Bacteroidales-1 6S-Bacteroidales RNA suggested: a 177-nucleotide RNA sequence from Bacteroidetes bacterium oral taxon 272. NCBI's taxonomy places the organism under Bacteria, Pseudomonadati, Bacteroidota, Bacteroidetes bacterium oral taxon 272. Rfam describes the family as follows. Bacteroidales-1 was first reported in a comparative genomics-based approach of genome and metagenome sequences from Weinberg et al. 2010 In a high-resolution transcriptome map study of Bacteroides thetaiotaomicron, Ryan et al. 2020 report this sRNA as 6S RNA homologue of Bacteroides, in the study they obtain evidence of small product RNAs (pRNAs) related to 6S function. The family's consensus secondary structure is taken from published work. The match comes from Rfam's covariance-model search (180 bits). Rfam classes the family as a small RNA.

[Rfam]
RNA sequence: AGCCGCAUUAGUUGUACUGGGAAACUCAUCAAGUUAUAUUGAAUUCCGAGACAAGCUUCUUCAACCAAUGGCGGGCCACGCCUUCGGGUAGCAGCAAUGUCGGUGGAUUACAAAGGCUGAAGAGCACUCAAAUCCUGUCAUUCGGAGUUUCAUCGCAUCACUGGUGCGGCUUCAUAU
Numbered sequence: 001a002g003c004c005g006c007a008u009u010a011g012u013u014g015u016a017c018u019g020g021g022a023a024a025c026u027c028a029u030c031a032a033g034u035u036a037u038a039u040u041g042a043a044u045u046c047c048g049a050g051a052c053a054a055g056c057u058u059c060u061u062c063a064a065c066c067a068a069u070g071g072c073g074g075g076c077c078a079c080g081c082c083u084u085c086g087g088g089u090a091g092c093a094g095c096a097a098u099g100u101c102g103g104u105g106g107a108u109u110a111c112a113a114a115g116g117c118u119g120a121a122g123a124g125c126a127c128u129c130a131a132a133u134c135c136u137g138u139c140a141u142u143c144g145g146a147g148u149u150u151c152a153u154c155g156c157a158u159c160a161c162u163g164g165u166g167c168g169g170c171u172u173c174a175u176a177u
Stems, first nucleotide, its partner, number of pairs: 055125003059122005065116002069112002076106004080089003091100003